[Rfam]
RNA sequence: UCCCAUGAUUCCAUGGGGCAUGUCUCCAGUGGCAUUGUCCCUUCCUAGUCAUGGAAAAGGGUUUGCUUUCUUUUUAAUGUAGCUGUGUCCACCAUGUUGGAAUCAGUUCUCUAAAAUAAAGCGACAGUG
Number, nucleotide and partner (000 for none) at each position: 001u000002c000003c054004c053005a052006u051007g050008a000009u000010u000011c000012c000013a000014u000015g041016g040017g039018g038019c000020a035021u034022g033023u032024c031025u000026c000027c000028a000029g000030u000031g024032g023033c022034a021035u020036u000037g000038u018039c017040c016041c015042u000043u000044c000045c000046u000047a000048g000049u000050c007051a006052u005053g004054g003055a000056a000057a000058a000059g000060g000061g000062u000063u000064u000065g000066c000067u000068u129069u000070c127071u126072u000073u000074u123075u000076a000077a000078u118079g117080u116081a000082g000083c106084u105085g104086u000087g000088u101089c100090c099091a098092c000093c000094a000095u000096g000097u000098u091099g090100g089101a088102a000103u000104c085105a084106g083107u000108u000109c000110u000111c000112u000113a000114a000115a000116a080117u079118a078119a000120a000121g000122c000123g074124a000125c000126a071127g070128u000129g068
This 129-nucleotide RNA from Leptobrachium leishanense belongs to the Rfam family "Small nucleolar RNA SNORA24". Taxonomically the source falls in Leptobrachium (Eukaryota, Chordata, Craniata, Gnathostomata). ACA24 is a member of the H/ACA class of snoRNA that guide the sites of modification of uridines to pseudouridines. Rfam 15.1 lists 852 matches to the family in 501 species. It scores 55 bits against the family's covariance model.